[Rfam]
RNA: Makes More Granules Regulator RNA (mmgR)
Nucleotides: 076
Base pairs, nucleotide, nucleotide: 008018009017010016011015039061040060041059042058043057044056045055046054047053
Number, partner (000 for none) and nucleotide at each position: 001000g002000u003000c004000a005000u006000a007000c008018g009017c010016u011015c012000c013000u014000g015011g016010a017009g018008c019000g020000u021000u022000u023000c024000c025000u026000c027000c028000c029000u030000a031000g032000a033000c034000u035000c036000c037000u038000c039061g040060g041059g042058u043057c044056g045055c046054g047053u048000c049000g050000a051000u052000g053047g054046c055045g056044c057043g058042a059041c060040c061039c062000u063000u064000u065000u066000c067000u068000u069000u070000u071000c072000u073000c074000g075000c076000g